[Rfam]
RNA sequence: UGGCCGCGAUGAUGCGGGAGGUUGCUGAUACACCCGGCCGCUUUGCCAUGGCGAGUGUAAGGAAAUUUCCGCGGAGUAAUGUCUAUUUAGAAAAAUAGGCGA
Numbered sequence: 001u002g003g004c005c006g007c008g009a010u011g012a013u014g015c016g017g018g019a020g021g022u023u024g025c026u027g028a029u030a031c032a033c034c035c036g037g038c039c040g041c042u043u044u045g046c047c048a049u050g051g052c053g054a055g056u057g058u059a060a061g062g063a064a065a066u067u068u069c070c071g072c073g074g075a076g077u078a079a080u081g082u083c084u085a086u087u088u089a090g091a092a093a094a095a096u097a098g099g100c101g102a
Stems, first nucleotide, its partner, number of pairs: 014072003018069004025061002028058004080101008

Shown here is a 102-nucleotide RNA sequence from Peribacillus faecalis, a member of the family "S10-Clostridia ribosomal protein leader".
For this family Rfam cites "Discovery of 20 novel ribosomal leader candidates in bacteria and archaea" (Eckert and Weinberg, BMC Microbiol, 2020).